[Rfam]
RNA: Bacterial RNase P class A
RNA sequence: GAAGUUGGUCGGAUGGUCGCUGGUAGGUUUCCCUAUCAGAGGAAAGUCCGGGCUCCACAGAGCAAAGUGCUAGCUAACGGCUAGGUAUGGCGACAUAACGGAAAGUGCUGCAGAGAUUUAGACUACCCAUUAAUGGGAAAAGGUGAGAAGGUGCGGUAAGAGCGCACCGCACAGUUGGUGACAACUGUGGCAAGGUAAACCCCACUUGGAGCAAGCUCAAAUAGGCCACCCAUGGUGUGGCUCGUGCAAGGUGGCGGGUAGAGUGCUAAAGCAUAUUGGUAACAAUAUGUGUAGAUGAAUGACCAUCAACUACAGAACCCGGCUUAUAGACCGACUUCCCUA
Numbered sequence: 001g002a003a004g005u006u007g008g009u010c011g012g013a014u015g016g017u018c019g020c021u022g023g024u025a026g027g028u029u030u031c032c033c034u035a036u037c038a039g040a041g042g043a044a045a046g047u048c049c050g051g052g053c054u055c056c057a058c059a060g061a062g063c064a065a066a067g068u069g070c071u072a073g074c075u076a077a078c079g080g081c082u083a084g085g086u087a088u089g090g091c092g093a094c095a096u097a098a099c100g101g102a103a104a105g106u107g108c109u110g111c112a113g114a115g116a117u118u119u120a121g122a123c124u125a126c127c128c129a130u131u132a133a134u135g136g137g138a139a140a141a142g143g144u145g146a147g148a149a150g151g152u153g154c155g156g157u158a159a160g161a162g163c164g165c166a167c168c169g170c171a172c173a174g175u176u177g178g179u180g181a182c183a184a185c186u187g188u189g190g191c192a193a194g195g196u197a198a199a200c201c202c203c204a205c206u207u208g209g210a211g212c213a214a215g216c217u218c219a220a221a222u223a224g225g226c227c228a229c230c231c232a233u234g235g236u237g238u239g240g241c242u243c244g245u246g247c248a249a250g251g252u253g254g255c256g257g258g259u260a261g262a263g264u265g266c267u268a269a270a271g272c273a274u275a276u277u278g279g280u281a282a283c284a285a286u287a288u289g290u291g292u293a294g295a296u297g298a299a300u301g302a303c304c305a306u307c308a309a310c311u312a313c314a315g316a317a318c319c320c321g322g323c324u325u326a327u328a329g330a331c332c333g334a335c336u337u338c339c340c341u342a
Stems, first nucleotide, its partner, number of pairs: 001338010011327001012307007020039008044325003048322005053211004060243004065207005070084005085099001086097004100202002105200002107196003123142002126137004150168006169191001170189008215264004225255006235247004271290008